This 94-nucleotide sequence from Clostridium liquoris belongs to the Rfam family "Glycine riboswitch aptamer".
[Rfam]
RNA sequence: GGACGAAACUCUGGAGAGACUCUUAAAUGAGCACCGAAGGAGCAAGUUGGGAUAUCCCAAUGAAACUCUCAGGUAAAAGGACAGAGAAUAGAAC
Numbered sequence: 001g002g003a004c005g006a007a008a009c010u011c012u013g014g015a016g017a018g019a020c021u022c023u024u025a026a027a028u029g030a031g032c033a034c035c036g037a038a039g040g041a042g043c044a045a046g047u048u049g050g051g052a053u054a055u056c057c058c059a060a061u062g063a064a065a066c067u068c069u070c071a072g073g074u075a076a077a078a079g080g081a082c083a084g085a086g087a088a089u090a091g092a093a094c
Base pairs, nucleotide, nucleotide: 006089009086010085011084012083013082020031021030022029033074034073035072036070037069040068041067042066046061047060048059049058

The match comes from Rfam's covariance-model search (68 bits). On this family, see Mandal et al., Science 2004: "A glycine-dependent riboswitch that uses cooperative binding to control gene expression". Its family is annotated with glycine biosynthetic process in the Gene Ontology. The family is grouped with related families in Rfam's "Glycine riboswitch clan".